MIR168 microRNA precursor family: a 151-nucleotide RNA from Actinidia chinensis. NCBI's taxonomy places the organism under Eukaryota, Streptophyta, Embryophyta, Gunneridae, Actinidia chinensis. The match comes from Rfam's covariance-model search (102 bits). Rfam links the family to the GO terms RISC complex and miRNA-mediated post-transcriptional gene silencing. Rfam 15.1 lists 518 matches to the family in 218 species. For this family Rfam cites "MicroRNAs in plants" (Reinhart et al., Genes Dev, 2002). The base pairs follow the family's consensus structure, which was predicted with WAR.
[Rfam]
RNA sequence: GUCGCGGCGGUCUCUAAUUCGCUUGGUGCAGGUCGGGAACCGCUUCGCCGCCGCCGGCGUCUCGGCGGCAAUAUAUUUGUGUGUCGUGCGAUUUAUUGGCGGGCGAAUCGGGUUCCGGCUUGCAUCAACUGAAUCGGAGAACGCGGUGAAU
Numbered sequence: 001g002u003c004g005c006g007g008c009g010g011u012c013u014c015u016a017a018u019u020c021g022c023u024u025g026g027u028g029c030a031g032g033u034c035g036g037g038a039a040c041c042g043c044u045u046c047g048c049c050g051c052c053g054c055c056g057g058c059g060u061c062u063c064g065g066c067g068g069c070a071a072u073a074u075a076u077u078u079g080u081g082u083g084u085c086g087u088g089c090g091a092u093u094u095a096u097u098g099g100c101g102g103g104c105g106a107a108u109c110g111g112g113u114u115c116c117g118g119c120u121u122g123c124a125u126c127a128a129c130u131g132a133a134u135c136g137g138a139g140a141a142c143g144c145g146g147u148g149a150a151u
Stems, first nucleotide, its partner, number of pairs: 013138002017134004023128010034117005040111002